[Rfam]
RNA sequence: AAUCCACCUAUGAGAGUAGGAACCCCACCAUAUGGGGAUUUCGAAAUCAUAGGUUUUUG
Numbered sequence: 001a002a003u004c005c006a007c008c009u010a011u012g013a014g015a016g017u018a019g020g021a022a023c024c025c026c027a028c029c030a031u032a033u034g035g036g037g038a039u040u041u042c043g044a045a046a047u048c049a050u051a052g053g054u055u056u057u058u059g
Stems, first nucleotide, its partner, number of pairs: 006054008019042004024036003
The family of this 59-nucleotide RNA sequence from Staphylococcus saprophyticus is "Staphylococcus aureus small RNA TEG147". Rfam's curators write: TEG147 is an RNA element identified by RNA-seq in S. aureus N315 with homologues in other Staphylococcus species. It is annotated as a cis-regulatory element. Its family is annotated with mRNA binding in the Gene Ontology.